[Rfam]
RNA: Cyano-1 RNA
Organism: Oscillatoriales cyanobacterium USR001
RNA sequence: GGAUGUGUGAGGAGCGAACCAGAAAGAGUACCGAGACGAAACACGGCCAGUCGUCGGUACUCUUUUUGUG
Numbered sequence: 001g002g003a004u005g006u007g008u009g010a011g012g013a014g015c016g017a018a019c020c021a022g023a024a025a026g027a028g029u030a031c032c033g034a035g036a037c038g039a040a041a042c043a044c045g046g047c048c049a050g051u052c053g054u055c056g057g058u059a060c061u062c063u064u065u066u067u068g069u070g
Stems, first nucleotide, its partner, number of pairs: 023065005030058005035052003